[Rfam]
RNA sequence: UUUGCAAGUUUGAAGCCACAGAAGAAGUGCUUACAGUGCGGCCCUAUCAGAUUCUAGCGAAUCUGAGAAUUCUGCU
Numbered sequence: 001u002u003u004g005c006a007a008g009u010u011u012g013a014a015g016c017c018a019c020a021g022a023a024g025a026a027g028u029g030c031u032u033a034c035a036g037u038g039c040g041g042c043c044c045u046a047u048c049a050g051a052u053u054c055u056a057g058c059g060a061a062u063c064u065g066a067g068a069a070u071u072c073u074g075c076u
Base pairs, nucleotide, nucleotide: 012044015042016041017040020076021075023073024072025071026070027039028038029037048065049064050063051062052061053060054059